A member of the RNA family "mir-9/mir-79 microRNA precursor family" from Denticeps clupeoides, 78 nucleotides long.
It scores 77 bits against the family's covariance model.
Taxonomically the source falls in Denticeps (Eukaryota, Bilateria, Craniata, Denticipitoidei).
On this family, see Lagos-Quintana et al., Science 2001: "Identification of novel genes coding for small expressed RNAs".

[Rfam]
RNA sequence: CGGGUUCUGUCUUUGGUUAUCUAGCUGUAUGAGUGAAACGCAGCUGUCAUAAAGCUAGAUCACCGAAAGUAGAACCCG
Numbered sequence: 001c002g003g004g005u006u007c008u009g010u011c012u013u014u015g016g017u018u019a020u021c022u023a024g025c026u027g028u029a030u031g032a033g034u035g036a037a038a039c040g041c042a043g044c045u046g047u048c049a050u051a052a053a054g055c056u057a058g059a060u061c062a063c064c065g066a067a068a069g070u071a072g073a074a075c076c077c078g
Base pairs, nucleotide, nucleotide: 001078002077003076004075005074007072008071009070010069012067013066014065015064016063017062019060020059021058022057023056024055025054026053028051029050030049031048032047